[Rfam]
RNA sequence: AAUAAACUUAUGCUGAAUCCUUUUAUAGGUACGGAGGAACCAAAAUGUUGGGGUUAAUCUGUUUUAUCAGUAGGGAACCUUCACCCGAACCCGUCAGCUAACUCCGGAAGCAAGAAGGGGGGAUGA
Numbered sequence: 001a002a003u004a005a006a007c008u009u010a011u012g013c014u015g016a017a018u019c020c021u022u023u024u025a026u027a028g029g030u031a032c033g034g035a036g037g038a039a040c041c042a043a044a045a046u047g048u049u050g051g052g053g054u055u056a057a058u059c060u061g062u063u064u065u066a067u068c069a070g071u072a073g074g075g076a077a078c079c080u081u082c083a084c085c086c087g088a089a090c091c092c093g094u095c096a097g098c099u100a101a102c103u104c105c106g107g108a109a110g111c112a113a114g115a116a117g118g119g120g121g122g123a124u125g126a
Stems, first nucleotide, its partner, number of pairs: 011112004019029002032106005041050002051092003059070003073086003
The family of this 126-nucleotide sequence from Clostridiales bacterium oral taxon 876 is "c-di-AMP riboswitch aptamer (ydaO/yuaA leader)".
Pairs were carried over by alignment from the consensus structure.
A search with the family's covariance model found it, with a score of 97 bits.
Taxonomically the source falls in Clostridiales bacterium oral taxon 876 (Bacteria, Bacillota, Clostridia, Eubacteriales).